[Rfam]
RNA sequence: AAUUAAUGUUCGAAGCCUAAGAGCGCCACUUCCUGUGGCAACGGCUUCGUGACCUACAUCGUGUAGG
Numbered sequence: 001a002a003u004u005a006a007u008g009u010u011c012g013a014a015g016c017c018u019a020a021g022a023g024c025g026c027c028a029c030u031u032c033c034u035g036u037g038g039c040a041a042c043g044g045c046u047u048c049g050u051g052a053c054c055u056a057c058a059u060c061g062u063g064u065a066g067g
Stems, first nucleotide, its partner, number of pairs: 011049007025039005053067005
RNA: Bacillaceae-1 RNA